[Rfam]
RNA sequence: AAAAACAAUUACAUAUGACCUAAGACAGUAGCUGUAUUAUAUACUUAAUUUGCUACCGAGGAAAAAUAAAACUGGAACUUAUUUUCUCUCUUUUAAAAUGUCUUUAGGAAUUUAUAAGAGGGAUUUUAUUUUUAUUAA
Numbered sequence: 001a002a003a004a005a006c007a008a009u010u011a012c013a014u015a016u017g018a019c020c021u022a023a024g025a026c027a028g029u030a031g032c033u034g035u036a037u038u039a040u041a042u043a044c045u046u047a048a049u050u051u052g053c054u055a056c057c058g059a060g061g062a063a064a065a066a067u068a069a070a071a072c073u074g075g076a077a078c079u080u081a082u083u084u085u086c087u088c089u090c091u092u093u094u095a096a097a098a099u100g101u102c103u104u105u106a107g108g109a110a111u112u113u114a115u116a117a118g119a120g121g122g123a124u125u126u127u128a129u130u131u132u133u134a135u136u137a138a
Stems, first nucleotide, its partner, number of pairs: 028056005034044003085123008094114004
A member of the RNA family "Ribosomal protein L10 leader" from Acholeplasma oculi, 138 nucleotides long. Rfam links the family to the GO term regulation of gene expression. By type it is a cis-regulatory leader. From the family's description: This family is a putative r-protein leader autoregulatory structure found in B. subtilis and other low-GC Gram-positive bacteria. It is located in the 5' untranslated regions of mRNAs encoding ribosomal proteins L10 and L12 (rplJ-rplL).